RNA sequence: UGUUAAGAUAGAGGCGCGGAUUUUAUCAGUAAAUUAUUUGAUGCAGGUAAAUGCAGGUAAGAAUGGUCGAAAGGAAAAUCUGCCGAGGAAGUUUAUAUUUUACCGUUUAGAUUUCCGGGCUUAAUGUUAAGAGCAUUGAGACUGUCAUCGCUUAGAUGGAGUGCUAUUCACAAA
Numbered sequence: 001u002g003u004u005a006a007g008a009u010a011g012a013g014g015c016g017c018g019g020a021u022u023u024u025a026u027c028a029g030u031a032a033a034u035u036a037u038u039u040g041a042u043g044c045a046g047g048u049a050a051a052u053g054c055a056g057g058u059a060a061g062a063a064u065g066g067u068c069g070a071a072a073g074g075a076a077a078a079u080c081u082g083c084c085g086a087g088g089a090a091g092u093u094u095a096u097a098u099u100u101u102a103c104c105g106u107u108u109a110g111a112u113u114u115c116c117g118g119g120c121u122u123a124a125u126g127u128u129a130a131g132a133g134c135a136u137u138g139a140g141a142c143u144g145u146c147a148u149c150g151c152u153u154a155g156a157u158g159g160a161g162u163g164c165u166a167u168u169c170a171c172a173a174a
Stems, first nucleotide, its partner, number of pairs: 007168005016083009033067007087116009097106002117143002120140008145159005

This 174-nucleotide sequence from Anaerofustis stercorihominis belongs to the Rfam family "Lysine riboswitch aptamer".
Taxonomically the source falls in Anaerofustis stercorihominis (Bacteria, Bacillati, Bacillota, Clostridia).
The base pairs follow the family's consensus structure, which is taken from published work.